[Rfam]
RNA sequence: UUUCGUUCUCGGGGCGGGGUGAAAUUCCCCACCGGCGGUAAGGAAUUUUAUUCUAAGCCCGCGAGCGCUCACUCCUUUUCUAUAUCAAGGAUUGAGGUCAGCAGAUCUGGUGUGAUUCCAGAGCCGACGGUUACAGUCCGGAUGAUAGAGAGCGCGU
Numbered sequence: 001u002u003u004c005g006u007u008c009u010c011g012g013g014g015c016g017g018g019g020u021g022a023a024a025u026u027c028c029c030c031a032c033c034g035g036c037g038g039u040a041a042g043g044a045a046u047u048u049u050a051u052u053c054u055a056a057g058c059c060c061g062c063g064a065g066c067g068c069u070c071a072c073u074c075c076u077u078u079u080c081u082a083u084a085u086c087a088a089g090g091a092u093u094g095a096g097g098u099c100a101g102c103a104g105a106u107c108u109g110g111u112g113u114g115a116u117u118c119c120a121g122a123g124c125c126g127a128c129g130g131u132u133a134c135a136g137u138c139c140g141g142a143u144g145a146u147a148g149a150g151a152g153c154g155c156g157u
Base pairs, nucleotide, nucleotide: 004154005153006152007151008150009149010148017029018028019027031137032136033126034125035062036061037060038059057124058123065102066101106122107121108120109119110118128140129139130138
Rfam assigns this 157-nucleotide sequence from Marinomonas pollencensis to the family "FMN riboswitch aptamer (RFN element)". The source organism's lineage runs through Bacteria, Pseudomonadati, Gammaproteobacteria, Oceanospirillaceae and Marinomonas. A search with the family's covariance model found it, with a score of 120 bits.